[Rfam]
RNA sequence: UUGCAACGGCAAAUCGGUACGGCCAGCUCCUGCUGAACUCCCCCAGGCCCGGAAGGGAGCAAGGGUAGGUGGUUGAGCGGCGCGAUACUCGAUUUGCCACUU
Numbered sequence: 001u002u003g004c005a006a007c008g009g010c011a012a013a014u015c016g017g018u019a020c021g022g023c024c025a026g027c028u029c030c031u032g033c034u035g036a037a038c039u040c041c042c043c044c045a046g047g048c049c050c051g052g053a054a055g056g057g058a059g060c061a062a063g064g065g066u067a068g069g070u071g072g073u074u075g076a077g078c079g080g081c082g083c084g085a086u087a088c089u090c091g092a093u094u095u096g097c098c099a100c101u102u
Base pairs, nucleotide, nucleotide: 008098009097010096011095012094013093014092015091017088018087019086020084021083022081023080
Dot-bracket structure: .......((((((((.(((((((........................................................)).)).)))..))))))))....
The record is a 102-nucleotide RNA from Rufibacter radiotolerans, which matches "Bacteroidales small SRP" in Rfam.
The organism belongs to Rufibacter, within Bacteria.
Clan: SRP clan.
The base pairs follow the family's consensus structure, which is taken from published work.
Rfam classes the family as a non-coding RNA gene.
On this family, see Ryan et al., Nat Commun 2020: "A high-resolution transcriptome map identifies small RNA regulation of metabolism in the gut microbe Bacteroides thetaiotaomicron".
A search with the family's covariance model found it, with a score of 73 bits.